Bacterial RNase P class A: a 342-nucleotide RNA sequence from Rubrivivax albus.
RNA sequence: GAAGUCGGCCAGACCGCCGCUGGCGCAACCACCCGAAAGGGCGCGCUGGAGGAAGGUCCGGACUGCACAGGGCAGCGUAGCAGCCAACGGCUGUCCACCGCGAGGUGAGGAUCAGAGCAACAGAGACGAGUCGAGCCGGGGCGAAGCCCCGGCUCGGGUGAAACGGGCAAUCUCUACGCGCAGCAACACCAAAUAGGCACACGACGAUCCGGCCCGGGGAGUGUGCGGGUAGGUGGCACCGAGCCGGGUGGGCGACCCCCGGCCCAGAGGAAUGGCGGUCACGGCGGCGUCUCGCAAGAGGUGUCCGCUGCACAGAAUCCGGCCUAUCGGCCGACUUCACAC
Numbered sequence: 001g002a003a004g005u006c007g008g009c010c011a012g013a014c015c016g017c018c019g020c021u022g023g024c025g026c027a028a029c030c031a032c033c034c035g036a037a038a039g040g041g042c043g044c045g046c047u048g049g050a051g052g053a054a055g056g057u058c059c060g061g062a063c064u065g066c067a068c069a070g071g072g073c074a075g076c077g078u079a080g081c082a083g084c085c086a087a088c089g090g091c092u093g094u095c096c097a098c099c100g101c102g103a104g105g106u107g108a109g110g111a112u113c114a115g116a117g118c119a120a121c122a123g124a125g126a127c128g129a130g131u132c133g134a135g136c137c138g139g140g141g142c143g144a145a146g147c148c149c150c151g152g153c154u155c156g157g158g159u160g161a162a163a164c165g166g167g168c169a170a171u172c173u174c175u176a177c178g179c180g181c182a183g184c185a186a187c188a189c190c191a192a193a194u195a196g197g198c199a200c201a202c203g204a205c206g207a208u209c210c211g212g213c214c215c216g217g218g219g220a221g222u223g224u225g226c227g228g229g230u231a232g233g234u235g236g237c238a239c240c241g242a243g244c245c246g247g248g249u250g251g252g253c254g255a256c257c258c259c260c261g262g263c264c265c266a267g268a269g270g271a272a273u274g275g276c277g278g279u280c281a282c283g284g285c286g287g288c289g290u291c292u293c294g295c296a297a298g299a300g301g302u303g304u305c306c307g308c309u310g311c312a313c314a315g316a317a318u319c320c321g322g323c324c325u326a327u328c329g330g331c332c333g334a335c336u337u338c339a340c341a342c
Base pairs, nucleotide, nucleotide: 001338002337003336004335005334006333007332008331009330010329011327012280013279014278015277016276017275018274020049021048022047023046024045025044026043054325055324056323058322059321060320061319062318063183064182065181066180070215071214072213073212075179076178077177078176079175080094081093082092083091084090095109096107097106098105099104110174111173115172116171117168118167132157134154135153136152137151138150139149140148141147142146187235188234189233190232197226198225199224200223201222202221208218209217210216243263244262245261246260247259248258250257251256
Dot-bracket structure: ((((((((((((((((((.(((((((................)))))))....[[[.[[[[[((((...[[[[.((((((((((.....)))))(((((....)))).)((...((((.............(.(((((((((...)))))))))..).........))..)))))))))))))...((((......((((((.....(((.]]]])))..)))))).....)))).......((((((.((....))))))))..........))))))).....................................]]]]]]]].).))))))))))....

Record summary
It is annotated as a ribozyme. The source organism's lineage runs through Bacteria, Pseudomonadota, Betaproteobacteria, Sphaerotilaceae and Rubrivivax. Rfam's curators write: Ribonuclease P (RNase P) is a ubiquitous endoribonuclease, found in archaea, bacteria and eukarya as well as chloroplasts and mitochondria. Pairs were carried over by alignment from the consensus structure, which is taken from published work.